[Rfam]
RNA sequence: AAUAAAGGAUGUUCGACUAAAACCACCACAUCCUGUGGCAACGUCGAACUACCCCACGUCCUGUGGG
Numbered sequence: 001a002a003u004a005a006a007g008g009a010u011g012u013u014c015g016a017c018u019a020a021a022a023c024c025a026c027c028a029c030a031u032c033c034u035g036u037g038g039c040a041a042c043g044u045c046g047a048a049c050u051a052c053c054c055c056a057c058g059u060c061c062u063g064u065g066g067g
Stems, first nucleotide, its partner, number of pairs: 011049007026038004053067005
Rfam assigns this 67-nucleotide sequence from Virgibacillus salinus to the family "Bacillaceae-1 RNA". Pairs were carried over by alignment from the consensus structure, which is taken from published work.